[Rfam]
Nucleotides: 066
Base pairs, nucleotide, nucleotide: 001066004063005062006061007060010057011056012055014049015048016047019045020044021043022042023041025039026032027031
Number, partner (000 for none) and nucleotide at each position: 001066c002000c003000c004063a005062g006061a007060g008000u009000a010057g011056g012055c013000u014049g015048a016047c017000u018000u019045g020044g021043u022042u023041g024000c025039u026032g027031u028000g029000g030000u031027a032026c033000a034000g035000a036000g037000a038000a039025g040000c041023c042022a043021g044020c045019u046000u047016g048015u049014u050000u051000a052000c053000a054000c055012g056011c057010u058000c059000a060007u061006u062005c063004u064000a065000u066001g
Annotation:
Shown here is a 66-nucleotide RNA sequence from Ailuropoda melanoleuca, a member of the family "MAT2A 3'UTR stem loop F". The family has 26 seed sequences and 403 matches in Rfam 15.1. Pairs were carried over by alignment from the consensus structure, which is taken from published work. On this family, see Parker et al., Genome Res 2011: "New families of human regulatory RNA structures identified by comparative analysis of vertebrate genomes". Rfam classes the family as a cis-regulatory element.